[Rfam]
RNA sequence: AUACAUUUAAUGAUGAAGUCUUUAAUUAGGACUAGAGUUUCUGAUCUCUGGGUUUUUACACCCAGAAGUUGAAGAAACCCUUGGCUGUCUGAGCACCUAU
Numbered sequence: 001a002u003a004c005a006u007u008u009a010a011u012g013a014u015g016a017a018g019u020c021u022u023u024a025a026u027u028a029g030g031a032c033u034a035g036a037g038u039u040u041c042u043g044a045u046c047u048c049u050g051g052g053u054u055u056u057u058a059c060a061c062c063c064a065g066a067a068g069u070u071g072a073a074g075a076a077a078c079c080c081u082u083g084g085c086u087g088u089c090u091g092a093g094c095a096c097c098u099a100u
Stems, first nucleotide, its partner, number of pairs: 001100003006095001008093001038074004045067001047065001050062002
Dot-bracket structure: (((..(.(.............................((((...(.(..((.........))..).)...))))..................).)..)))
About this RNA:
Rfam assigns this 100-nucleotide RNA sequence from Thalictrum thalictroides to the family "Small nucleolar RNA Z157/R69/R10". A search with the family's covariance model found it, with a score of 59 bits.